[Rfam]
This 128-nucleotide sequence from Pan paniscus belongs to the Rfam family "U8 small nucleolar RNA". It scores 71 bits against the family's covariance model. Rfam links the family to the GO terms RNA processing and nucleolus.

RNA sequence: UUGUCAGGUGGGAUAAUACUUACCUAUGUUUGGAGGACAGUAUUAGGACAUAAUGAUUGGAGUCACAUGAUAUGAUUAAUGUCUGCUUCAUAAUCAGGUCUCACACACCCUGAUUGCUCCUAUCUGAU
Numbered sequence: 001u002u003g004u005c006a007g008g009u010g011g012g013a014u015a016a017u018a019c020u021u022a023c024c025u026a027u028g029u030u031u032g033g034a035g036g037a038c039a040g041u042a043u044u045a046g047g048a049c050a051u052a053a054u055g056a057u058u059g060g061a062g063u064c065a066c067a068u069g070a071u072a073u074g075a076u077u078a079a080u081g082u083c084u085g086c087u088u089c090a091u092a093a094u095c096a097g098g099u100c101u102c103a104c105a106c107a108c109c110c111u112g113a114u115u116g117c118u119c120c121u122a123u124c125u126g127a128u
Stems, first nucleotide, its partner, number of pairs: 028043002031040001033038001069086001070082003073078001091116008